[Rfam]
RNA sequence: AAAGCAGGUUGCAAUUACAGUGCUUUAUUUUGUGAAAGUACUGUCAUUAUCCUGCUGAAAGAAAAGCUGUGUUGGUCCUUUUUGAUUUUGCCACUGUGCUGGUAAAAUCAUGACAGACUGACAUCGACAAUU
Numbered sequence: 001a002a003a004g005c006a007g008g009u010u011g012c013a014a015u016u017a018c019a020g021u022g023c024u025u026u027a028u029u030u031u032g033u034g035a036a037a038g039u040a041c042u043g044u045c046a047u048u049a050u051c052c053u054g055c056u057g058a059a060a061g062a063a064a065a066g067c068u069g070u071g072u073u074g075g076u077c078c079u080u081u082u083u084g085a086u087u088u089u090g091c092c093a094c095u096g097u098g099c100u101g102g103u104a105a106a107a108u109c110a111u112g113a114c115a116g117a118c119u120g121a122c123a124u125c126g127a128c129a130a131u132u
Base pairs, nucleotide, nucleotide: 003056004055005054006053007052008051018043019042020041021040022039023038024037025036026035067126069124070123071122072121073120074119075118076117077116083110084109085108086107087106088105089104090103091102092101093100
RNA: Small nucleolar RNA SNORA69